[Rfam]
RNA sequence: CCUGUUGUUCCGUCAACAGUAGCCUAUGGGAACGUGCGGUAUUAAGCAAUGAACCCGUGCGGUAACAGAACCAACAAUGAAGCCCUUCCGAAAGGAGAAGUCUGAACCGUGAGGGGAUGACAACUGCCGUUAGUAUCGAACGACAGGGGAG
Number, nucleotide and partner (000 for none) at each position: 001c000002c019003u018004g017005u016006u015007g014008u000009u000010c000011c000012g000013u000014c007015a006016a005017c004018a003019g002020u000021a000022g000023c000024c000025u000026a000027u000028g072029g071030g000031a000032a000033c061034g060035u059036g058037c057038g056039g055040u000041a000042u052043u000044a000045a050046g000047c000048a000049a000050u045051g000052a042053a000054c000055c039056c038057g037058u036059g035060c034061g033062g000063u000064a000065a000066c000067a000068g000069a000070a000071c029072c028073a000074a000075c000076a000077a000078u000079g000080a000081a000082g000083c000084c000085c000086u097087u096088c095089c094090g000091a000092a000093a000094g089095g088096a087097g086098a000099a000100g121101u120102c119103u000104g000105a000106a000107c114108c113109g000110u000111g000112a000113g108114g107115g000116g000117a000118u000119g102120a101121c100122a000123a000124c000125u000126g144127c000128c142129g141130u140131u139132a000133g000134u000135a000136u000137c000138g000139a131140a130141c129142g128143a000144c126145a000146g000147g000148g000149g000150a000151g000

Shown here is a 151-nucleotide RNA from Bacteroides thetaiotaomicron, a member of the family "Group II catalytic intron D1-D4-7".
The literature on the family includes a 2001 paper in EMBO J by Chu et al., "Control of branch-site choice by a group II intron".
Group II introns are found in rRNA, tRNA and mRNA of organelles in fungi, plants and protists, and also in mRNA in bacteria.